[Rfam]
RNA sequence: UGCCGGCGGGCGCUCUGACUUCAUUGCACUACUGUACUUCUCAGCGAGCAGUGCAAUAGUAUUGUCAAAGCACCCGUCAGCAGC
Numbered sequence: 001u002g003c004c005g006g007c008g009g010g011c012g013c014u015c016u017g018a019c020u021u022c023a024u025u026g027c028a029c030u031a032c033u034g035u036a037c038u039u040c041u042c043a044g045c046g047a048g049c050a051g052u053g054c055a056a057u058a059g060u061a062u063u064g065u066c067a068a069a070g071c072a073c074c075c076g077u078c079a080g081c082a083g084c
Base pairs, nucleotide, nucleotide: 002081003080007076008075009074010073012071013070014069016067017066018065019064023057024056025055026054027053028052029051030050034042

Rfam assigns this 84-nucleotide RNA from Phrynocephalus forsythii to the family "mir-301 microRNA precursor family".
The source organism's lineage runs through Eukaryota, Gnathostomata, Squamata, Episquamata and Phrynocephalus.
Its family is annotated with RISC complex and miRNA-mediated post-transcriptional gene silencing in the Gene Ontology.